[Rfam]
RNA: Nuclear RNase P
RNA sequence: CUAGUCCAAAGGCCACUGGUACUCGCCCUGAUGCUAGUUUCUAGUCCUGCGAGUGGGAAGGUCCGCGUGCGCCUCGUUGCUCUUUCUCGUUGUGAGAGACAAUUAGCGGACCAGUGGUCAGCGUGGAUGUAUGCAUAGUAGCGCCAGCCAUGGUGGUAUGCAAGAAUUUUAGUGUUCCCUCUACAGCUCUUGCUGGGCGAGUGGCGUAAAGCCCUGAGGUUGGCCCAUACCAGAAACGACUCUUGCGCAGUAGGCCUUCGCGGCGCUUUCCCCGGGAUGUGUCCCGCUCGGAGACACGUGUAGGUAUCGCCGGCGGAGAUUGGAAAAGGGUCUACUCGAUGAGGACGCCAAGAGUCUUGCAUACUCAAGCUACGUGCAUACUAGCCCUACGAUGACGCUGGCACGGUGAUUGAAACUUGUGGGUUUUCCUGCAUGUUGGAGCAGCGAGGUCGCUUACUACAAGCUUGAGUGCAAUCAGUGGCGCCUCUUUGACAGAGUUAACUCGACGCGAGACUACUCUUGGAGUAG
Numbered sequence: 001c002u003a004g005u006c007c008a009a010a011g012g013c014c015a016c017u018g019g020u021a022c023u024c025g026c027c028c029u030g031a032u033g034c035u036a037g038u039u040u041c042u043a044g045u046c047c048u049g050c051g052a053g054u055g056g057g058a059a060g061g062u063c064c065g066c067g068u069g070c071g072c073c074u075c076g077u078u079g080c081u082c083u084u085u086c087u088c089g090u091u092g093u094g095a096g097a098g099a100c101a102a103u104u105a106g107c108g109g110a111c112c113a114g115u116g117g118u119c120a121g122c123g124u125g126g127a128u129g130u131a132u133g134c135a136u137a138g139u140a141g142c143g144c145c146a147g148c149c150a151u152g153g154u155g156g157u158a159u160g161c162a163a164g165a166a167u168u169u170u171a172g173u174g175u176u177c178c179c180u181c182u183a184c185a186g187c188u189c190u191u192g193c194u195g196g197g198c199g200a201g202u203g204g205c206g207u208a209a210a211g212c213c214c215u216g217a218g219g220u221u222g223g224c225c226c227a228u229a230c231c232a233g234a235a236a237c238g239a240c241u242c243u244u245g246c247g248c249a250g251u252a253g254g255c256c257u258u259c260g261c262g263g264c265g266c267u268u269u270c271c272c273c274g275g276g277a278u279g280u281g282u283c284c285c286g287c288u289c290g291g292a293g294a295c296a297c298g299u300g301u302a303g304g305u306a307u308c309g310c311c312g313g314c315g316g317a318g319a320u321u322g323g324a325a326a327a328g329g330g331u332c333u334a335c336u337c338g339a340u341g342a343g344g345a346c347g348c349c350a351a352g353a354g355u356c357u358u359g360c361a362u363a364c365u366c367a368a369g370c371u372a373c374g375u376g377c378a379u380a381c382u383a384g385c386c387c388u389a390c391g392a393u394g395a396c397g398c399u400g401g402c403a404c405g406g407u408g409a410u411u412g413a414a415a416c417u418u419g420u421g422g423g424u425u426u427u428c429c430u431g432c433a434u435g436u437u438g439g440a441g442c443a444g445c446g447a448g449g450u451c452g453c454u455u456a457c458u459a460c461a462a463g464c465u466u467g468a469g470u471g472c473a474a475u476c477a478g479u480g481g482c483g484c485c486u487c488u489u490u491g492a493c494a495g496a497g498u499u500a501a502c503u504c505g506a507c508g509c510g511a512g513a514c515u516a517c518u519c520u521u522g523g524a525g526u527a528g
Base pairs, nucleotide, nucleotide: 001528002527003526007522008521009520012482013481014480015479016478017477018476021054022053023052024051025050063512064510065509066508067507186198187197188196189195201215203213204212205211220334222332223331224330225329226328241319242318243317483499485497486496487495488494
Dot-bracket structure: (((...(((..(((((((..(((((........................)))))........[[[[[......................................................................................................................((((.....))))..(.(((.....))).)....(.(((((..............(((.........................................................................)))........))))).).............................................................................................................................................)))))))(.((((.....)))).).......]]]].].......)))...)))